[Rfam]
RNA sequence: GAGACGAUAGUAUGGUAGAAAGAAAUAUUCAUAUUUUGCUUUCUACCAUACUGUCUAGUAUUGUCAUUGUGCUGUAUAAAGUUUACUAU
Numbered sequence: 001g002a003g004a005c006g007a008u009a010g011u012a013u014g015g016u017a018g019a020a021a022g023a024a025a026u027a028u029u030c031a032u033a034u035u036u037u038g039c040u041u042u043c044u045a046c047c048a049u050a051c052u053g054u055c056u057a058g059u060a061u062u063g064u065c066a067u068u069g070u071g072c073u074g075u076a077u078a079a080a081g082u083u084u085a086c087u088a089u
Base pairs, nucleotide, nucleotide: 006055007054008053009052010051011050012049013048014047015046016045017044018043019042020041021040022039
Rfam assigns this 89-nucleotide sequence from Ziziphus jujuba to the family "Plastid-psbM 3UTR RNA". The base pairs follow the family's consensus structure, which was predicted with LocARNA. Rfam 15.1 lists 627 matches to the family in 337 species. The literature on the family includes a 2023 paper in Plant Commun by Richter et al., "Retrograde signaling in plants: A critical review focusing on the GUN pathway and beyond". Plastid psbM is a non-coding RNA (ncRNA) recognised in plastids. It was found in the three prime untranslated region (3UTR) of psbM gene, its 3UTR location suggests a role in transcript maturation. Taxonomically the source falls in Ziziphus jujuba (Eukaryota, Euphyllophyta, Rhamnaceae, Paliureae).